[Rfam]
RNA sequence: CGGAAGUGCCUUGUCGAUCGUGCCUGAUGUGGUCCUAGAAAAACCCCAUUAUCGCAGGUCGCAAGGCACUUCUUCGUUUCUGGGUGAACCAUCCGCCGGCAUCAAG
Numbered sequence: 001c002g003g004a005a006g007u008g009c010c011u012u013g014u015c016g017a018u019c020g021u022g023c024c025u026g027a028u029g030u031g032g033u034c035c036u037a038g039a040a041a042a043a044c045c046c047c048a049u050u051a052u053c054g055c056a057g058g059u060c061g062c063a064a065g066g067c068a069c070u071u072c073u074u075c076g077u078u079u080c081u082g083g084g085u086g087a088a089c090c091a092u093c094c095g096c097c098g099g100c101a102u103c104a105a106g
Base pairs, nucleotide, nucleotide: 002073003072004071005070006069007068008067009066010065011064012063013062015061016060017059019057021056022055023054025051026050027049028048032044033043